The family of this 115-nucleotide RNA from Shewanella fodinae is "Ribosomal S15 leader". From the family's description: The E. coli Ribosomal S15 gene 5' UTR can form two alternative structures. One that is a series of three hairpins, The other includes a pseudoknot. This structure causes translational regulation of the S15 protein.
RNA sequence: CCCCUCGGCUGAGUUAGUGAUCGGCUGAGGUCAUUUGAUUAAAUAUUUGGAGAGACUCAUGUCACUAAGUACUGAAAAGAAAGCUGAAAUCCUGGCUGAAUUUGGCCGCGGCGAA
Numbered sequence: 001c002c003c004c005u006c007g008g009c010u011g012a013g014u015u016a017g018u019g020a021u022c023g024g025c026u027g028a029g030g031u032c033a034u035u036u037g038a039u040u041a042a043a044u045a046u047u048u049g050g051a052g053a054g055a056c057u058c059a060u061g062u063c064a065c066u067a068a069g070u071a072c073u074g075a076a077a078a079g080a081a082a083g084c085u086g087a088a089a090u091c092c093u094g095g096c097u098g099a100a101u102u103u104g105g106c107c108g109c110g111g112c113g114a115a
Stems, first nucleotide, its partner, number of pairs: 007026006046069005052063001
Gene Ontology term of the family: regulation of translation, ncRNA-mediated. A search with the family's covariance model found it, with a score of 95 bits.